RNA sequence: UGACGGGGGCCCGCACAAGCGGUGGAUGAUGUGGAUUAAUUCGAUGCAACGCGAAAAACCUUACCUGGUCUUGACAUGUACGGAAUCCUUUAGAGAUAGAGGAGUGCCUUCGGGAACCGUAACACAGGUGCUGCAUGGCUGUCGUCAGCUCGUGUCGUGAGAUGUUGGGUUAAGUCCCGCAACGAGCGCAACCCUUGCCACUAGUUGCUACCAUUCAGUUGAGCACUUUAGUGGGACUGCCGGUGACAAACCGGAGGAAGGUGGGGAUGACGUCAAGUCCUCAUGGCCCUUAUGACCAGGGCUUCACACGUCAUACAAUGGUCGGUACAGAGGGUCGCUAACCCGCGAGGGGGUGCCAAUCUCACAAAACCGAUCGUAGUCCGGAUUGCACUCUGCAACUCGAGUGCAUGAAGUCGGAAUCGCUAGUAAUCGCGGAUCAGCAUGUCGCGGUGAAUACGUUCCCGGGCCUUGUACACACCGCCCGUCACACCAUGGGAGUGGGUUUCACCAGAAGUAGGUAGGCUAACCGCAAGGAGGCCGCUUACCACGGUGGGAUUCAUGACUGGGGUGAAGUCGUAACAAGG
Dot-bracket structure: (((((.(((((((.((..((((((.((((((((((....((((........))))........(((((((......(((((((..(((((((....))))))).(.((....)).)))))).))..((.((((..((((((.((...(((((((((....)))..((((......))))..)))))).....((((.(((((((...((..((......))))....)))))))..((.(((((.....))))).)).....))))....)).).)))...))))))))....)))))))...)).)))))))).)...(((((((.....(((..((...(((....)))...))....))).....)))))))......(....(((((((........)))))))....).....))))).....(((((((.........)))))))......))...)))))))))).))..(.(..((...((((.(((..((((((((((((....((((((.((((..((....)).))))))))))...))))))))))))..))).))))....))...)..).